[Rfam]
RNA: FMN riboswitch aptamer (RFN element)
RNA sequence: ACGCGUCUUCAGGGCGGGGCGAAAUUCCCCACCGGCGGUAUGCACGAAGACGGUGUCGUCACCACGGCCCCGUCUGUCGCGCGAGCCCGCGAGCGCUUGCCGGCACCCCGCCGGCAAGGUCAGCAGACCUGGUGAGAAGCCAGGGCCGACGGUCAGAGUCCGGAUGAGAGAAGACGAGC
Number, nucleotide and partner (000 for none) at each position: 001a000002c000003g000004c176005g175006u174007c173008u172009u171010c170011a000012g000013g000014g000015c000016g000017g029018g028019g027020c000021g000022a000023a000024a000025u000026u000027c019028c018029c017030c000031a159032c158033c148034g147035g090036c089037g088038g087039u000040a000041u000042g000043c000044a000045c000046g000047a000048a000049g000050a000051c000052g000053g000054u000055g000056u000057c000058g000059u000060c000061a000062c000063c000064a000065c000066g000067g000068c000069c000070c000071c000072g000073u000074c000075u000076g000077u000078c000079g000080c000081g000082c000083g000084a000085g000086c000087c038088c037089g036090c035091g000092a000093g124094c123095g000096c000097u000098u000099g000100c000101c000102g000103g000104c000105a000106c000107c000108c000109c000110g000111c000112c000113g000114g000115c000116a000117a000118g000119g000120u000121c000122a000123g094124c093125a000126g000127a000128c144129c143130u142131g141132g140133u000134g000135a000136g000137a000138a000139g000140c132141c131142a130143g129144g128145g000146c000147c034148g033149a000150c162151g161152g160153u000154c000155a000156g000157a000158g032159u031160c152161c151162g150163g000164a000165u000166g000167a000168g000169a000170g010171a009172a008173g007174a006175c005176g004177a000178g000179c000